[Rfam]
RNA sequence: UUCCUGUAAUUAAACAACAGGAUCAUGUGACCAGGUUUAACUUUGUACAAUAGGUCGCCAUUUUUUAUGAAAGUAAACAACAAAAACCCCUUUUUUAUCAUUAAAAAAUAGGGUAG
Numbered sequence: 001u002u003c004c005u006g007u008a009a010u011u012a013a014a015c016a017a018c019a020g021g022a023u024c025a026u027g028u029g030a031c032c033a034g035g036u037u038u039a040a041c042u043u044u045g046u047a048c049a050a051u052a053g054g055u056c057g058c059c060a061u062u063u064u065u066u067a068u069g070a071a072a073g074u075a076a077a078c079a080a081c082a083a084a085a086a087c088c089c090c091u092u093u094u095u096u097a098u099c100a101u102u103a104a105a106a107a108a109u110a111g112g113g114u115a116g
Base pairs, nucleotide, nucleotide: 004020005019006018007017035078036077037076038075039074041073042072043071044070047068049066052065053064054063079096080095082093083092084091098112099111
This 116-nucleotide sequence from Brenneria goodwinii belongs to the Rfam family "Soft rot Enterobacteriaceae Fwd 6 3'UTR". The base pairs follow the family's consensus structure, which was predicted with RNAfold. From the family's description: From bacteria cultured under starvation conditions. It is annotated as a cis-regulatory element. It scores 99 bits against the family's covariance model.